[Rfam]
RNA: Small nucleolar RNA SNORA53
Organism: Apophysomyces sp. BC1034
RNA sequence: AGUAUCUGCCUUAGAUCCUUUGUCAGGUUGAGUGAAGAAUUUUAUAUUUUUCUACUCUUCUACAAAGCUUACGUUUUGCUUUUCGUUGACAAAGCUUGAGUCAUUCAGAUACGAGAGUGCCUAUACCUCCAUUUCGGUCCCGAUUCAUGUUUCGCUGAUGUUUUUUUUUAAAAAAAUGUCGACUUACACGAAGCACUUUGGGCUCAUCUGGGGACAUG
Numbered sequence: 001a002g003u004a005u006c007u008g009c010c011u012u013a014g015a016u017c018c019u020u021u022g023u024c025a026g027g028u029u030g031a032g033u034g035a036a037g038a039a040u041u042u043u044a045u046a047u048u049u050u051u052c053u054a055c056u057c058u059u060c061u062a063c064a065a066a067g068c069u070u071a072c073g074u075u076u077u078g079c080u081u082u083u084c085g086u087u088g089a090c091a092a093a094g095c096u097u098g099a100g101u102c103a104u105u106c107a108g109a110u111a112c113g114a115g116a117g118u119g120c121c122u123a124u125a126c127c128u129c130c131a132u133u134u135c136g137g138u139c140c141c142g143a144u145u146c147a148u149g150u151u152u153c154g155c156u157g158a159u160g161u162u163u164u165u166u167u168u169u170a171a172a173a174a175a176a177u178g179u180c181g182a183c184u185u186a187c188a189c190g191a192a193g194c195a196c197u198u199u200g201g202g203c204u205c206a207u208c209u210g211g212g213g214a215c216a217u218g
Stems, first nucleotide, its partner, number of pairs: 002112007010100005018094008027060001030057004036051001037049004065081004127213005134206001136204004148195007159188003164176003